[Rfam]
RNA: U7 small nuclear RNA
Organism: Piliocolobus tephrosceles
RNA sequence: AAGUGUUACAGCACUUUUAGAAUUUGGUAGGCUUUCCAGUUUUUGCUGGAAAGCUCCU
Dot-bracket structure: .............................(((((((((((....)))))))))))...
Numbered sequence: 001a002a003g004u005g006u007u008a009c010a011g012c013a014c015u016u017u018u019a020g021a022a023u024u025u026g027g028u029a030g031g032c033u034u035u036c037c038a039g040u041u042u043u044u045g046c047u048g049g050a051a052a053g054c055u056c057c058u
Stems, first nucleotide, its partner, number of pairs: 030055011